Overview: This 157-nucleotide sequence from Paenibacillus sp. oral taxon 786 belongs to the Rfam family "FMN riboswitch aptamer (RFN element)". NCBI's taxonomy places the organism under Bacteria, Bacillati, Bacilli, Paenibacillaceae, Paenibacillus sp. oral taxon 786. The match comes from Rfam's covariance-model search (109 bits). The literature on the family includes a 2002 paper in Nucleic Acids Res by Vitreschak et al., "Regulation of riboflavin biosynthesis and transport genes in bacteria by transcriptional and translational attenuation".
[Rfam]
RNA sequence: AGAGAUCUUCGGGGUAGGGUGAAAUUCCCGACCGGCGGUGAGGUUUCGGCAAGAGGGAACCGCAGCCCGCGACUCGCAGAUGGCCUUCACGGCCCGAAGCGACUGACUUGGUGAGAAUCCAAGGCCGACGGUAAAGUCCGGAUGGGAGGAGAUCAAU
Numbered sequence: 001a002g003a004g005a006u007c008u009u010c011g012g013g014g015u016a017g018g019g020u021g022a023a024a025u026u027c028c029c030g031a032c033c034g035g036c037g038g039u040g041a042g043g044u045u046u047c048g049g050c051a052a053g054a055g056g057g058a059a060c061c062g063c064a065g066c067c068c069g070c071g072a073c074u075c076g077c078a079g080a081u082g083g084c085c086u087u088c089a090c091g092g093c094c095c096g097a098a099g100c101g102a103c104u105g106a107c108u109u110g111g112u113g114a115g116a117a118u119c120c121a122a123g124g125c126c127g128a129c130g131g132u133a134a135a136g137u138c139c140g141g142a143u144g145g146g147a148g149g150a151g152a153u154c155a156a157u
Stems, first nucleotide, its partner, number of pairs: 004154007017029003031137002033127002035070004065125002074102004107123005129140003